RNA: c-di-GMP-I riboswitch aptamer
Organism: Cryobacterium psychrotolerans
Nucleotides: 074
Stems, first nucleotide, its partner, number of pairs: 012037002017032006041067003045064003048059003
Number, partner (000 for none) and nucleotide at each position: 001000c002000a003000a004000a005000c006000g007000a008000a009000a010000u011000g012037g013036c014000a015000c016000a017032c018031u019030c020029g021028u022027c023000g024000u025000a026000a027022g028021g029020c030019g031018g032017g033000g034000u035000c036013g037012c038000a039000a040000a041067g042066g043065c044000a045064c046063g047062g048059g049058a050057c051000c052000u053000u054000c055000g056000g057050g058049u059048u060000a061000g062047c063046c064045g065043g066042c067041c068000c069000a070000c071000c072000g073000a074000a